L17 ribosomal protein downstream element: a 68-nucleotide RNA sequence from Atopobacter sp. AH10.

RNA sequence: CGAGUGUUAUGAUGAUGAAGGGGAACCUUUUAGUCUAGCUCGAGUGUCGCUAAGCUAUCUAGCUUAGC
Numbered sequence: 001c002g003a004g005u006g007u008u009a010u011g012a013u014g015a016u017g018a019a020g021g022g023g024a025a026c027c028u029u030u031u032a033g034u035c036u037a038g039c040u041c042g043a044g045u046g047u048c049g050c051u052a053a054g055c056u057a058u059c060u061a062g063c064u065u066a067g068c
Stems, first nucleotide, its partner, number of pairs: 002041004011035003017030005049068008
A search with the family's covariance model found it, with a score of 54 bits.